Group II catalytic intron D1-D4-1: an 87-nucleotide sequence from Photobacterium proteolyticum. Pairs were carried over by alignment from the consensus structure. Rfam describes the family as follows. Group II introns are found in rRNA, tRNA and mRNA of organelles in fungi, plants and protists, and also in mRNA in bacteria. A search with the family's covariance model found it, with a score of 69 bits. Lineage of the source: Bacteria > Pseudomonadati > Vibrionales > Vibrionaceae > Photobacterium. Its family is annotated with Group II intron splicing in the Gene Ontology.
RNA sequence: CUAACGCAGUAGUGAUGCUGCGUGACGGGUGGUAAGAAGUCAGCAGAAGGCAUAGUACCUUGAGGAAGUACAACUCAAGGGAAGGCC
Numbered sequence: 001c002u003a004a005c006g007c008a009g010u011a012g013u014g015a016u017g018c019u020g021c022g023u024g025a026c027g028g029g030u031g032g033u034a035a036g037a038a039g040u041c042a043g044c045a046g047a048a049g050g051c052a053u054a055g056u057a058c059c060u061u062g063a064g065g066a067a068g069u070a071c072a073a074c075u076c077a078a079g080g081g082a083a084g085g086c087c
Stems, first nucleotide, its partner, number of pairs: 001027001004023008040047002049087003058080006